Annotation:
Shown here is a 70-nucleotide sequence from Rodentolepis nana, a member of the family "HDV ribozyme from F. prausnitzii".
RNA sequence: GGUGUGCGAUAGACCUACCUCCACGUGGUGCACCCUGGGCAACGUAUACUCAUACGGCAAAAAGGUUUAU
Numbered sequence: 001g002g003u004g005u006g007c008g009a010u011a012g013a014c015c016u017a018c019c020u021c022c023a024c025g026u027g028g029u030g031c032a033c034c035c036u037g038g039g040c041a042a043c044g045u046a047u048a049c050u051c052a053u054a055c056g057g058c059a060a061a062a063a064g065g066u067u068u069a070u
Stems, first nucleotide, its partner, number of pairs: 001036002004033004017029003043056005

Gene Ontology term of the family: catalytic activity.